[Rfam]
RNA sequence: UGGGAGGCAGAUACACAAAUUGGGCUGCAGACUGCUCUAAUCACCAUACCUUCCUAAAAUAAACUGCCUUUUGAUGACUGGGAUGAAUUGAGUGAAAUAAUGGACAGAUACGGGGGGCGGGAGGAU
Numbered sequence: 001u002g003g004g005a006g007g008c009a010g011a012u013a014c015a016c017a018a019a020u021u022g023g024g025c026u027g028c029a030g031a032c033u034g035c036u037c038u039a040a041u042c043a044c045c046a047u048a049c050c051u052u053c054c055u056a057a058a059a060u061a062a063a064c065u066g067c068c069u070u071u072u073g074a075u076g077a078c079u080g081g082g083a084u085g086a087a088u089u090g091a092g093u094g095a096a097a098u099a100a101u102g103g104a105c106a107g108a109u110a111c112g113g114g115g116g117g118c119g120g121g122a123g124g125a126u
Stems, first nucleotide, its partner, number of pairs: 002054006018041001022037004064120007078103003086098001

The record is a 126-nucleotide RNA sequence from Molossus molossus, which matches "Small Cajal body specific RNA 8" in Rfam.
A search with the family's covariance model found it, with a score of 87 bits.
From the family's description: scaRNAs are a specific class of small nuclear RNAs which localise to the Cajal bodies and guide the modification of RNA polymerase II transcribed spliceosomal RNAs U1, U2, U4, U5 and U12. U92 belong to the H/ACA box class of guide RNAs as it has the predicted hairpin-hinge-hairpin-tail structure, conserved H/ACA-box motifs and is found associated with GAR1.
It is annotated as a small Cajal body RNA.
The source organism's lineage runs through Eukaryota, Metazoa, Mammalia, Laurasiatheria and Molossus.
A reference for the family is Darzacq et al. (2002), "Cajal body-specific small nuclear RNAs: a novel class of 2'-O-methylation and pseudouridylation guide RNAs", EMBO J.
The family has 22 seed sequences and 955 matches in Rfam 15.1.
Its family is annotated with RNA processing, nucleolus and Cajal body in the Gene Ontology.